[Rfam]
Shown here is a 62-nucleotide RNA from Curtobacterium sp. MCBD17_040, a member of the family "ASdes TB sRNA".
On this family, see Arnvig and Young, Mol Microbiol 2009: "Identification of small RNAs in Mycobacterium tuberculosis".
A search with the family's covariance model found it, with a score of 44 bits.
Rfam 15.1 lists 1,192 matches to the family in 825 species.
By type it is a small RNA.
RNA sequence: GGUCCGACGCCGGCGGCGCGCGCCGCGGUCACGUAGUCGCUCCGCGCGAUGCGGCGGAUCUC
Numbered sequence: 001g002g003u004c005c006g007a008c009g010c011c012g013g014c015g016g017c018g019c020g021c022g023c024c025g026c027g028g029u030c031a032c033g034u035a036g037u038c039g040c041u042c043c044g045c046g047c048g049a050u051g052c053g054g055c056g057g058a059u060c061u062c
Stems, first nucleotide, its partner, number of pairs: 004057003008027003012024004032053004037049004